A member of the RNA family "ROOL RNA", 603 nucleotides long.
RNA sequence: UUGACAAGUAAUUUAUUAGUUGAACCCUGUGAAGAGGAUUACGUCUUGCAGGGAUGGCAUCUUGAUGAAAUAGCAAUAAGGCUGGGAUACUGGUCGUACGUAAAAAACUCUGGUAGGUAACAUCAGAGUUCUCUCGUAAGCUACGAUUUACGAGCGGAGAUGUCAGUGCAACAUAUUAUCGGUGUUUAAACAAGCUUACAGCUCGUCCCACAAGAAGCUCUGUAGAAAUACAUCUCACCAUUAGUUACAAGCCUGAGAAACUUGAUAGCUGGGUUCUCAAAGUAAGGAAGUGUCUUGAAGUAACGUAAGUUAUGUAUAAGAGUUAGUAAGUGUGCAAGUAGCCGUAUGACACAGCUCAAAUAUGAUACGUUGUGCAUGAGUUAUGAGUAAUAGUAACUGAUGAACCUUAAAAAAUUCUGAAGUUCGGUGAAAGUUGCAGAAUACAAAUACAAUCUAUUUGAUUCUAGCCAUUGUUCGGGUUUUACCCCAUUGAGGAAGCCUAAAGGUAGCUCCUUUUCGCUCAGACCUCCGUGAAUGUGUGUGAAUAAAACAUGAUAAAAGUGUUGUAAGAUGAAGAAAAGUCUCAAUGUUAAAUUACUUAUC
Numbered sequence: 001u002u003g004a005c006a007a008g009u010a011a012u013u014u015a016u017u018a019g020u021u022g023a024a025c026c027c028u029g030u031g032a033a034g035a036g037g038a039u040u041a042c043g044u045c046u047u048g049c050a051g052g053g054a055u056g057g058c059a060u061c062u063u064g065a066u067g068a069a070a071u072a073g074c075a076a077u078a079a080g081g082c083u084g085g086g087a088u089a090c091u092g093g094u095c096g097u098a099c100g101u102a103a104a105a106a107a108c109u110c111u112g113g114u115a116g117g118u119a120a121c122a123u124c125a126g127a128g129u130u131c132u133c134u135c136g137u138a139a140g141c142u143a144c145g146a147u148u149u150a151c152g153a154g155c156g157g158a159g160a161u162g163u164c165a166g167u168g169c170a171a172c173a174u175a176u177u178a179u180c181g182g183u184g185u186u187u188a189a190a191c192a193a194g195c196u197u198a199c200a201g202c203u204c205g206u207c208c209c210a211c212a213a214g215a216a217g218c219u220c221u222g223u224a225g226a227a228a229u230a231c232a233u234c235u236c237a238c239c240a241u242u243a244g245u246u247a248c249a250a251g252c253c254u255g256a257g258a259a260a261c262u263u264g265a266u267a268g269c270u271g272g273g274u275u276c277u278c279a280a281a282g283u284a285a286g287g288a289a290g291u292g293u294c295u296u297g298a299a300g301u302a303a304c305g306u307a308a309g310u311u312a313u314g315u316a317u318a319a320g321a322g323u324u325a326g327u328a329a330g331u332g333u334g335c336a337a338g339u340a341g342c343c344g345u346a347u348g349a350c351a352c353a354g355c356u357c358a359a360a361u362a363u364g365a366u367a368c369g370u371u372g373u374g375c376a377u378g379a380g381u382u383a384u385g386a387g388u389a390a391u392a393g394u395a396a397c398u399g400a401u402g403a404a405c406c407u408u409a410a411a412a413a414a415u416u417c418u419g420a421a422g423u424u425c426g427g428u429g430a431a432a433g434u435u436g437c438a439g440a441a442u443a444c445a446a447a448u449a450c451a452a453u454c455u456a457u458u459u460g461a462u463u464c465u466a467g468c469c470a471u472u473g474u475u476c477g478g479g480u481u482u483u484a485c486c487c488c489a490u491u492g493a494g495g496a497a498g499c500c501u502a503a504a505g506g507u508a509g510c511u512c513c514u515u516u517u518c519g520c521u522c523a524g525a526c527c528u529c530c531g532u533g534a535a536u537g538u539g540u541g542u543g544a545a546u547a548a549a550a551c552a553u554g555a556u557a558a559a560a561g562u563g564u565u566g567u568a569a570g571a572u573g574a575a576g577a578a579a580a581g582u583c584u585c586a587a588u589g590u591u592a593a594a595u596u597a598c599u600u601a602u603c
Stems, first nucleotide, its partner, number of pairs: 007600002011596001013594002018590001021587001025053005036046004055165006071104001073101002077098002080095001082093004106130009116121001135152005176559002186550002194331004200324005206288003221232004238272003244269004248264003254279004290352005300313005335433001341428004346423001416525004436540001439465001469537003478485001491531002494528002498521001502516005569584004
Notes: Rfam's curators write: Firmicutes, Fusobacteria (1 example), Tenericutes (1 example).